[Rfam]
RNA: c-di-AMP riboswitch aptamer (ydaO/yuaA leader)
RNA sequence: ACGGGCGGUCCGCCGAAUCCUGCCGCCGUCCGGGGACUCGAUGGGAGAGGCAGGAGCGGGGGACCCACGAUUUCCGGCGCCGCAUGACCGCGCCUUGGGGUGAAGCCGCAUGACGACGGCCGGGCACCUCUGUCCGAACCCGACAGCUCACCUCGCAGGCGUGGAGGAUCAUCCAU
Numbered sequence: 001a002c003g004g005g006c007g008g009u010c011c012g013c014c015g016a017a018u019c020c021u022g023c024c025g026c027c028g029u030c031c032g033g034g035g036a037c038u039c040g041a042u043g044g045g046a047g048a049g050g051c052a053g054g055a056g057c058g059g060g061g062g063a064c065c066c067a068c069g070a071u072u073u074c075c076g077g078c079g080c081c082g083c084a085u086g087a088c089c090g091c092g093c094c095u096u097g098g099g100g101u102g103a104a105g106c107c108g109c110a111u112g113a114c115g116a117c118g119g120c121c122g123g124g125c126a127c128c129u130c131u132g133u134c135c136g137a138a139c140c141c142g143a144c145a146g147c148u149c150a151c152c153u154c155g156c157a158g159g160c161g162u163g164g165a166g167g168a169u170c171a172u173c174c175a176u
Stems, first nucleotide, its partner, number of pairs: 011161004018055007056156006066097002098141003106119003122135004